Background:
The family of this 76-nucleotide RNA from Cyclopterus lumpus is "Small nucleolar RNA SNORD2". On this family, see Zhou et al., Gene 2004: "Identification of a novel box C/D snoRNA from mouse nucleolar cDNA library". Rfam classes the family as a C/D-box small nucleolar RNA.
Nucleotides: 076
Stems, first nucleotide, its partner, number of pairs: 001076006
Number, partner (000 for none) and nucleotide at each position: 001076g002075a003074g004073u005072g006071a007000u008000a009000u010000g011000a012000u013000g014000g015000c016000a017000u018000a019000c020000c021000a022000u023000c024000u025000u026000u027000c028000g029000g030000g031000a032000c033000u034000g035000a036000c037000u038000c039000u040000u041000a042000c043000a044000a045000u046000g047000g048000a049000g050000a051000u052000a053000u054000u055000u056000c057000u058000c059000a060000u061000a062000u063000u064000u065000u066000a067000c068000u069000g070000a071006u072005c073004a074003c075002u076001u
The organism belongs to Cyclopterus, within Eukaryota.